[Rfam]
RNA sequence: GAUUCCCUUUCUACAACUCAAACCCAUCUCAAUUAUACAAUGAAAACCCCCUAGGGAUCUG
Numbered sequence: 001g002a003u004u005c006c007c008u009u010u011c012u013a014c015a016a017c018u019c020a021a022a023c024c025c026a027u028c029u030c031a032a033u034u035a036u037a038c039a040a041u042g043a044a045a046a047c048c049c050c051c052u053a054g055g056g057a058u059c060u061g
Stems, first nucleotide, its partner, number of pairs: 001059006
A member of the RNA family "Class I RNA from Dictyostelium" from Cavenderia fasciculata, 61 nucleotides long. Dictyostelium Class I RNA was first reported for Aspegren et al. 2004 in Dictyostelium discoideum. Sucgang et al. 2011 identify putative homologs of Class I RNA in D. discoideum and D. purpureum. Avesson et al. 2011 report that Class I RNA present a down regulation during the development of social amoeba Dictyostelium discoideum, they also found that deletion of one of the Class I RNAs, DdR-21, results in aberrant development. Kjellin et al. 2020 report an extended number of expressed Class I RNA genes in class Dictyostelia, in their analysis they remark that Class I RNA appear to be unique to dictyostelid social amoebas, and they hypothesise that Class I RNAs were involved in evolution of multicellularity in Dictyostelia. Rfam's curators put it in the seed alignment.